Source information: Shown here is a 95-nucleotide RNA from Paenibacillus foliorum, a member of the family "Glycine riboswitch aptamer". Taxonomically the source falls in Paenibacillus (Bacteria, Bacillota, Bacilli, Paenibacillaceae). Its family is annotated with glycine biosynthetic process in the Gene Ontology. The base pairs follow the family's consensus structure.
[Rfam]
RNA sequence: AUGAGGGCAAAAGGAGAGAUUACCGCUAGACGGUAACGCCGAAGGAGUAAACCCGGGAGGGUGAAUCUCUCAGGCAAAAGGACUUUUGCAGGACG
Numbered sequence: 001a002u003g004a005g006g007g008c009a010a011a012a013g014g015a016g017a018g019a020u021u022a023c024c025g026c027u028a029g030a031c032g033g034u035a036a037c038g039c040c041g042a043a044g045g046a047g048u049a050a051a052c053c054c055g056g057g058a059g060g061g062u063g064a065a066u067c068u069c070u071c072a073g074g075c076a077a078a079a080g081g082a083c084u085u086u087u088g089c090a091g092g093a094c095g
Stems, first nucleotide, its partner, number of pairs: 007089007020036004038075003041071002045069003051062002
Dot-bracket structure: ......(((((((......((((.........)))).(((((..(((...((........))....))))).))).......)))))))......